[Rfam]
This 79-nucleotide sequence from Phascolarctobacterium succinatutens belongs to the Rfam family "ZMP/ZTP riboswitch aptamer (pfl RNA motif)".
NCBI's taxonomy places the organism under Bacteria, Bacillati, Bacillota, Acidaminococcales, Phascolarctobacterium succinatutens.
RNA sequence: AUUAGGUCAUAUAACUGACGGAAGUGGGUUACCACAGGGGAGUAUGACCGGUAGCACGCCGACCGUCUGGGCAAAGAUU
Numbered sequence: 001a002u003u004a005g006g007u008c009a010u011a012u013a014a015c016u017g018a019c020g021g022a023a024g025u026g027g028g029u030u031a032c033c034a035c036a037g038g039g040g041a042g043u044a045u046g047a048c049c050g051g052u053a054g055c056a057c058g059c060c061g062a063c064c065g066u067c068u069g070g071g072c073a074a075a076g077a078u079u
Base pairs, nucleotide, nucleotide: 003051005049006048007047008046009045010044011043012042015039016038017067018066019065020064021063024035025034026033027032058072059071060070